[Rfam]
RNA sequence: GUGUAAUAGUUUGGAAACUCAAGGGUGGUUGGCUCACUCCCCGGGAAAGGGGAUGACGCCCGUGACAGUAUUUGAAGCAUUAAUGUUUGCAAUAACAUUCGCAACAUUGAUUGUAUCAAUACUUUCAGAAAACCAUAAAAAAUAACCCAUCCUUGAGUUAACGGCUCAGAUGGGUUACCCCUAUUAAACAGCCAACCCCUUUAGGGACCAACUAUUAUGCUUGACUACUUGAUGUUGUAGCAUCGGGU
Dot-bracket structure: (((.(((.(.((((...((((((((.((((...(((.(((((......)))))))).......((.((((................................(............)...)))).)).................))))..))))))))..........((...........)).........)))).(((....))).....).))).)))......(((((((((....)))))))))
Numbered sequence: 001g002u003g004u005a006a007u008a009g010u011u012u013g014g015a016a017a018c019u020c021a022a023g024g025g026u027g028g029u030u031g032g033c034u035c036a037c038u039c040c041c042c043g044g045g046a047a048a049g050g051g052g053a054u055g056a057c058g059c060c061c062g063u064g065a066c067a068g069u070a071u072u073u074g075a076a077g078c079a080u081u082a083a084u085g086u087u088u089g090c091a092a093u094a095a096c097a098u099u100c101g102c103a104a105c106a107u108u109g110a111u112u113g114u115a116u117c118a119a120u121a122c123u124u125u126c127a128g129a130a131a132a133c134c135a136u137a138a139a140a141a142a143u144a145a146c147c148c149a150u151c152c153u154u155g156a157g158u159u160a161a162c163g164g165c166u167c168a169g170a171u172g173g174g175u176u177a178c179c180c181c182u183a184u185u186a187a188a189c190a191g192c193c194a195a196c197c198c199c200u201u202u203a204g205g206g207a208c209c210a211a212c213u214a215u216u217a218u219g220c221u222u223g224a225c226u227a228c229u230u231g232a233u234g235u236u237g238u239a240g241c242a243u244c245g246g247g248u
Stems, first nucleotide, its partner, number of pairs: 001220003005216003009212001011195004018157008027147004034056003038053005064126002067123004103116001168182002197206003227248009

Background: The family of this 248-nucleotide RNA sequence from Lysinibacillus telephonicus is "BsrG". The family's consensus secondary structure was predicted with WAR. From the family's description: bsrE, bsrG and bsrH pair through intermolecular interactions with antisense sRNAs. They form type I toxin/antitoxin system that includes an mRNA encoding for a short, toxic peptide (bsrE, bsrG and bsrH) and an antitoxin that is comprised of an antisense RNA. bsrG encodes a 39-amino-acid toxin, and the 180 nucleotide antisense sRNA called SR4 acts as the antitoxin (they overlap by 123 nucleotides). SR4 interaction with the 3'UTR of bsrG RNA promotes bsrG degradation and inhibits its translation. BsrG interferes with cell envelope biosynthesis, causes membrane invaginations and delocalisation of the cell wall synthesis and initiates autolysis. bsrE RNA encodes 30 amino-acid toxin peptide. Its antitoxin gene, SR5 overlaps by 112 nucleotides at the 3' end of bsrE. SR5 also overlaps bsrG from nucleotide 163 to 52 (Rfam overlap check). The antitoxin SR5 promotes bsrE degradation but unlike SR4 it does not directly inhibits toxin mRNA translation. Its family is annotated with autolysis and toxin activity in the Gene Ontology. The family's RNA type in Rfam is small RNA.